[Rfam]
RNA sequence: GCGGAAGCCCCGUGUUGUGGUCUGACCCCGACGGCAAUACGGGGCAUCCCU
Numbered sequence: 001g002c003g004g005a006a007g008c009c010c011c012g013u014g015u016u017g018u019g020g021u022c023u024g025a026c027c028c029c030g031a032c033g034g035c036a037a038u039a040c041g042g043g044g045c046a047u048c049c050c051u
Stems, first nucleotide, its partner, number of pairs: 003049003007045012020032003
Dot-bracket structure: ..(((.((((((((((((.(((.......))).)))))))))))).)))..
RNA: F6 TB sRNA